[Rfam]
RNA sequence: ACCAUCCUUUUCUUGGGGUUGCGCUACUGUCCAAUGAACGCUUAGUGAGGGCAGUACUGCUGACGCCUGACAACACGCCCGCAUCGGCUAAAGCUCUGCUUUACCUCGGUGCAAUUUUUGGAAAA
Numbered sequence: 001a002c003c004a005u006c007c008u009u010u011u012c013u014u015g016g017g018g019u020u021g022c023g024c025u026a027c028u029g030u031c032c033a034a035u036g037a038a039c040g041c042u043u044a045g046u047g048a049g050g051g052c053a054g055u056a057c058u059g060c061u062g063a064c065g066c067c068u069g070a071c072a073a074c075a076c077g078c079c080c081g082c083a084u085c086g087g088c089u090a091a092a093g094c095u096c097u098g099c100u101u102u103a104c105c106u107c108g109g110u111g112c113a114a115u116u117u118u119u120g121g122a123a124a125a
Base pairs, nucleotide, nucleotide: 006018007017008016009015021060022059023058026055027054028053029052030051031050032049038046039045081112082111083110084109085108086107089103090102091101092100093099094098
RNA: U4atac minor spliceosomal RNA